[Rfam]
RNA sequence: UCGUGCUAGAUGGGGAGGUAGCGGUGCCCUGUAACCCGCAAUCCGCUCUAGCGGGAUCGAAUUCCUAUCAGCGGUCAUCUACAUGUAGGGUCUGGCUCGUGCAAGUGGUGUUGAUGGUUGGGUCCUAUGCAAUGAAUGUCCAUGAACCCCGUCAGGUCCGGAAGGAAGCAGCGGUAAGUGGAAUUUUUCAUGUGUUGUAGGGUUGCCUGAUCUGAGCUAACUACAUGGGUACGCCUAUGUGGGAUGAUCAAUGAUAGGUGCACGA
Number, nucleotide and partner (000 for none) at each position: 001u265002c264003g263004u262005g261006c260007u000008a000009g058010a057011u056012g030013g029014g028015g027016a000017g025018g000019u023020a000021g000022c000023g019024g000025u017026g000027c015028c014029c013030u012031g000032u000033a000034a000035c055036c054037c053038g052039c051040a000041a000042u000043c000044c000045g000046c000047u000048c000049u000050a000051g039052c038053g037054g036055g035056a011057u010058c009059g000060a000061a000062u000063u000064c258065c257066u256067a255068u254069c253070a252071g000072c000073g249074g248075u247076c246077a245078u000079c000080u243081a000082c241083a240084u239085g238086u237087a236088g235089g234090g000091u000092c000093u231094g230095g000096c000097u228098c227099g226100u225101g224102c000103a000104a000105g221106u220107g218108g217109u216110g000111u000112u000113g000114a000115u000116g212117g211118u210119u209120g208121g207122g206123u205124c201125c200126u199127a198128u197129g196130c192131a191132a000133u190134g189135a188136a187137u000138g000139u182140c181141c180142a179143u178144g000145a000146a000147c000148c000149c174150c173151g172152u171153c000154a000155g000156g000157u166158c165159c164160g000161g000162a000163a000164g159165g158166a157167a000168g000169c000170a000171g152172c151173g150174g149175u000176a000177a000178g143179u142180g141181g140182a139183a000184u000185u000186u000187u136188u135189c134190a133191u131192g130193u000194g000195u000196u129197g128198u127199a126200g125201g124202g000203u000204u000205g123206c122207c121208u120209g119210a118211u117212c116213u000214g000215a000216g109217c108218u107219a000220a106221c105222u000223a000224c101225a100226u099227g098228g097229g000230u094231a093232c000233g000234c089235c088236u087237a086238u085239g084240u083241g082242g000243g080244a000245u077246g076247a075248u074249c073250a000251a000252u070253g069254a068255u067256a066257g065258g064259u000260g006261c005262a004263c003264g002265a001
RNA: Bacterial large signal recognition particle RNA